[Rfam]
Nucleotides: 174
Stems, first nucleotide, its partner, number of pairs: 010087003017078005025070001031054004038048003055064003109167001111164003124154002128150005135145001137143002
Number, partner (000 for none) and nucleotide at each position: 001000a002000a003000c004000a005000u006000c007000a008000a009000u010087c011086g012085c013000a014000u015000c016000u017078u018077c019076a020075c021074u022000c023000u024000c025070u026000a027000c028000a029000a030000a031054a032053a033052g034051u035000c036000g037000u038048g039047g040046a041000a042000g043000u044000u045000u046040u047039c048038u049000u050000u051034a052033c053032u054031u055064c056063c057062g058000c059000u060000g061000a062057u063056g064055g065000g066000g067000a068000u069000u070025a071000a072000c073000c074021a075020g076019u077018g078017a079000a080000a081000g082000u083000a084000a085012g086011c087010g088000u089000a090000u091000a092000g093000a094000a095000a096000c097000c098000a099000u100000u101000a102000a103000g104000u105000u106000g107000g108000a109167g110000c111164a112163c113162g114000u115000u116000u117000c118000u119000g120000g121000g122000c123000g124154c125153c126000u127000g128150a129149u130148g131147u132146u133000g134000a135145c136000a137143a138142u139000a140000a141000c142138a143137u144000g145135g146132a147131a148130c149129a150128u151000u152000g153125g154124g155000a156000a157000u158000c159000a160000g161000u162113u163112g164111u165000g166000a167109c168000u169000a170000a171000a172000u173000u174000a
About this RNA
Rfam assigns this 174-nucleotide RNA sequence from Dujonia railenensis to the family "Small nucleolar RNA snR32". The organism belongs to Dujonia, within Eukaryota. A reference for the family is Balakin et al. (1993), "SnR31, snR32, and snR33: three novel, non-essential snRNAs from Saccharomyces cerevisiae", Nucleic Acids Res. By type it is an H/ACA-box small nucleolar RNA. Its family is annotated with nucleolus and RNA processing in the Gene Ontology.